The record is a 63-nucleotide RNA sequence from Drosophila pseudoananassae, which matches "Nanos 3' UTR translation control element" in Rfam. It is annotated as a cis-regulatory element. The base pairs follow the family's consensus structure, which is taken from published work. Rfam's curators put it in the seed alignment.

RNA sequence: AGAAAUCGAAGCUCUGGCAGCUUCUUAAGCGUUUAUAUAGUCAGAAAUAUAUAUGCGCGUUCA
Numbered sequence: 001a002g003a004a005a006u007c008g009a010a011g012c013u014c015u016g017g018c019a020g021c022u023u024c025u026u027a028a029g030c031g032u033u034u035a036u037a038u039a040g041u042c043a044g045a046a047a048u049a050u051a052u053a054u055g056c057g058c059g060u061u062c063a
Base pairs, nucleotide, nucleotide: 002062003061004060008024009023010022011021012020013019029058030057031056032055034053035052036051037050038049039048
The source organism's lineage runs through Eukaryota, Diptera, Drosophilidae, Sophophora and Drosophila pseudoananassae. About the family: The Nanos protein in Drosophila is required for correct anterior/posterior patterning in the Drosophila embryo. Translation of the nanos mRNA is repressed in the bulk cytoplasm and activated in the posterior region. Repression is mediated by a translation control element (TCE) in the 3' UTR of the mRNA. This element forms a Y-shaped structure, part of which is recognised by the Smaug protein leading to translational repression.